[Rfam]
Nucleotides: 087
Stems, first nucleotide, its partner, number of pairs: 003056006021044006
Number, partner (000 for none) and nucleotide at each position: 001000g002000c003056u004055u005054c006053c007052g008051a009000g010000g011000a012000g013000c014000g015000u016000u017000g018000c019000a020000g021044c022043g023042u024041u025040c026039c027000c028000g029000c030000g031000c032000a033000g034000g035000c036000c037000g038000c039026g040025g041024g042023g043022c044021g045000c046000g047000a048000g049000g050000c051008u052007c053006g054005g055004a056003a057000c058000c059000g060000a061000u062000c063000c064000c065000c066000u067000u068000c069000g070000c071000a072000a073000c074000g075000a076000c077000g078000c079000u080000c081000g082000c083000c084000c085000a086000c087000g